[Rfam]
RNA sequence: AAAAGAAAAUAGCAAACCAAUCCAAAGAUUGGGACGCAAAGCCACGGGUCUAAGGUAAAAGCUACGACAGCCGGGUUGCCAUG
Numbered sequence: 001a002a003a004a005g006a007a008a009a010u011a012g013c014a015a016a017c018c019a020a021u022c023c024a025a026a027g028a029u030u031g032g033g034a035c036g037c038a039a040a041g042c043c044a045c046g047g048g049u050c051u052a053a054g055g056u057a058a059a060a061g062c063u064a065c066g067a068c069a070g071c072c073g074g075g076u077u078g079c080c081a082u083g
Stems, first nucleotide, its partner, number of pairs: 012037002017032006040077004045073003048068003055062002
Dot-bracket structure: ...........((...((((((....))))))...))..((((.((((((....((....))...)))..)))))))......
RNA: c-di-GMP-I riboswitch aptamer